RNA sequence: CAUCGCCGAUUGUAGAUCCAGGUGCAGCAACGGUACGAACUUCACCAAUCGUGGGGUCAUAGAUACCGUGGAACUUGAUCCACAGAACGAAUAGCAAAGCACCCGUACCAAUCAACACGAGGUGAUGACCAAGGAUAUAACCGAGUUUCUUAGGAUCAUCCCA
Numbered sequence: 001c002a003u004c005g006c007c008g009a010u011u012g013u014a015g016a017u018c019c020a021g022g023u024g025c026a027g028c029a030a031c032g033g034u035a036c037g038a039a040c041u042u043c044a045c046c047a048a049u050c051g052u053g054g055g056g057u058c059a060u061a062g063a064u065a066c067c068g069u070g071g072a073a074c075u076u077g078a079u080c081c082a083c084a085g086a087a088c089g090a091a092u093a094g095c096a097a098a099g100c101a102c103c104c105g106u107a108c109c110a111a112u113c114a115a116c117a118c119g120a121g122g123u124g125a126u127g128a129c130c131a132a133g134g135a136u137a138u139a140a141c142c143g144a145g146u147u148u149c150u151u152a153g154g155a156u157c158a159u160c161c162c163a
Base pairs, nucleotide, nucleotide: 121160122159123158124157125156126155129154130153132151133150
Dot-bracket structure: ........................................................................................................................((((((..((.((................)).))))))))...
The record is a 163-nucleotide RNA sequence from Acaryochloris marina, which matches "Antisense RNA which regulates isiA expression" in Rfam. Rfam 15.1 lists 3,397 matches to the family in 659 species. It scores 54 bits against the family's covariance model. A reference for the family is Duhring et al. (2006), "An internal antisense RNA regulates expression of the photosynthesis gene isiA", Proc Natl Acad Sci U S A.